[Rfam]
RNA sequence: AGUGGUUCUCAGGCGACGUACCUGGAAUUGGGCUCCUUCCUCUCUGGUUCCAGGUGCGUCACCUGAGAACCACA
Numbered sequence: 001a002g003u004g005g006u007u008c009u010c011a012g013g014c015g016a017c018g019u020a021c022c023u024g025g026a027a028u029u030g031g032g033c034u035c036c037u038u039c040c041u042c043u044c045u046g047g048u049u050c051c052a053g054g055u056g057c058g059u060c061a062c063c064u065g066a067g068a069a070c071c072a073c074a
Stems, first nucleotide, its partner, number of pairs: 002073002005070009015060003019056014